[Rfam]
RNA sequence: AGAGUAAGUGCGUGUACGGACUCUGCCCGAGGUGGAUGAUUCUGGUGUACUUCCCCGAUAUCAGAACCUGCCUCGGACAGGGCUCUAUACGCACUUUCGUUUAUA
Numbered sequence: 001a002g003a004g005u006a007a008g009u010g011c012g013u014g015u016a017c018g019g020a021c022u023c024u025g026c027c028c029g030a031g032g033u034g035g036a037u038g039a040u041u042c043u044g045g046u047g048u049a050c051u052u053c054c055c056c057g058a059u060a061u062c063a064g065a066a067c068c069u070g071c072c073u074c075g076g077a078c079a080g081g082g083c084u085c086u087a088u089a090c091g092c093a094c095u096u097u098c099g100u101u102u103a104u105a
Base pairs, nucleotide, nucleotide: 010092011091012090013089014088015087016086018085019084021082022081023080024079025078027076028075029074030073031072032071033070034069038068040066041065042064043063044062045061046060047059048058
The record is a 105-nucleotide RNA sequence from Corynebacterium phocae, which matches "mraW RNA" in Rfam. By type it is a cis-regulatory element. Pairs were carried over by alignment from the consensus structure, which is taken from published work.